[Rfam]
RNA sequence: CACUUCGGUCCGGAGUUGAUGGGUUAUCAUUCUGAAUUGUUUACUCUCUUCUGCUUGCAGGAGAACCCCCGGUUUCAUUGCGAAACCAAAACUCUCGCAUUCUCAUUAAGAGUGCAAAACCUUCCCAUCAACACCAACUCGACCGUUGU
Numbered sequence: 001c002a003c004u005u006c007g008g009u010c011c012g013g014a015g016u017u018g019a020u021g022g023g024u025u026a027u028c029a030u031u032c033u034g035a036a037u038u039g040u041u042u043a044c045u046c047u048c049u050u051c052u053g054c055u056u057g058c059a060g061g062a063g064a065a066c067c068c069c070c071g072g073u074u075u076c077a078u079u080g081c082g083a084a085a086c087c088a089a090a091a092c093u094c095u096c097g098c099a100u101u102c103u104c105a106u107u108a109a110g111a112g113u114g115c116a117a118a119a120c121c122u123u124c125c126c127a128u129c130a131a132c133a134c135c136a137a138c139u140c141g142a143c144c145g146u147u148g149u
Base pairs, nucleotide, nucleotide: 002149003148006145007144008143009142010141012135013134015132016131017130018129019128020127021126022125023124047064048063049062050061051060052059053058073085074084075083076082097115098114099113100112101111102110
Rfam assigns this 149-nucleotide sequence from Caenorhabditis brenneri to the family "Nematode sRNA ceN72-3_ceN74-2". For this family Rfam cites "Systematic identification of non-coding RNA 2,2,7-trimethylguanosine cap structures in Caenorhabditis elegans" (Jia et al., BMC Mol Biol, 2007). Lineage of the source: Eukaryota > Eumetazoa > Protostomia > Rhabditidae > Caenorhabditis. Rfam 15.1 lists 521 matches to the family in 48 species. Pairs were carried over by alignment from the consensus structure, which was predicted with WAR. The family's RNA type in Rfam is small RNA.